RT-3 RNA: a 184-nucleotide RNA sequence from Prevotella lacticifex.
It is annotated as a small RNA.
It scores 57 bits against the family's covariance model.
RNA sequence: AAUCAGCUCUAUGGUGUAUGCUUGCGUGACAGGCAAUGACAAUGGCUGACAAGUCCGAGCCUCGGCAACAGCAAUUUCUCUCCAGUCUGCAAAGAAAUGGAAAGAAUUGGAAAGCGGAAAAACCAAAGGUGCAACCUAUGAUAGGUGAGUAAACAAGAAAUUGGCUGAAAGUCUUAACGGUUGC
Numbered sequence: 001a002a003u004c005a006g007c008u009c010u011a012u013g014g015u016g017u018a019u020g021c022u023u024g025c026g027u028g029a030c031a032g033g034c035a036a037u038g039a040c041a042a043u044g045g046c047u048g049a050c051a052a053g054u055c056c057g058a059g060c061c062u063c064g065g066c067a068a069c070a071g072c073a074a075u076u077u078c079u080c081u082c083c084a085g086u087c088u089g090c091a092a093a094g095a096a097a098u099g100g101a102a103a104g105a106a107u108u109g110g111a112a113a114g115c116g117g118a119a120a121a122a123c124c125a126a127a128g129g130u131g132c133a134a135c136c137u138a139u140g141a142u143a144g145g146u147g148a149g150u151a152a153a154c155a156a157g158a159a160a161u162u163g164g165c166u167g168a169a170a171g172u173c174u175u176a177a178c179g180g181u182u183g184c
Stems, first nucleotide, its partner, number of pairs: 003049005012042001014040002019035005062118002065115002072109005131184005143174004154163003